Annotation
Rfam assigns this 69-nucleotide RNA sequence from Danio rerio to the family "mir-34 microRNA precursor family". Its family is annotated with miRNA-mediated post-transcriptional gene silencing and RISC complex in the Gene Ontology. The family is grouped with related families in Rfam's "mir-34 clan". The base pairs follow the family's consensus structure, which was predicted with RNAalifold. Rfam 15.1 lists 2,256 matches to the family in 820 species. The literature on the family includes a 2003 paper in Science by Lim et al., "Vertebrate microRNA genes". Rfam's curators write: Human mir-34a was discovered computationally and later experimentally verified. The mature sequence is excised from the 5' arm of the hairpin.
[Rfam]
RNA sequence: GGUCACCAGGCAGUGCAGUUAGUUGAUUACAAUCCAUAAAGUAAUCACUAACCUCACUACCAGGUGAAG
Numbered sequence: 001g002g003u004c005a006c007c008a009g010g011c012a013g014u015g016c017a018g019u020u021a022g023u024u025g026a027u028u029a030c031a032a033u034c035c036a037u038a039a040a041g042u043a044a045u046c047a048c049u050a051a052c053c054u055c056a057c058u059a060c061c062a063g064g065u066g067a068a069g
Base pairs, nucleotide, nucleotide: 003067004066005065006064009061010060012058013057014056015055018052019051020050021049022048024047025046026045027044028043029042030041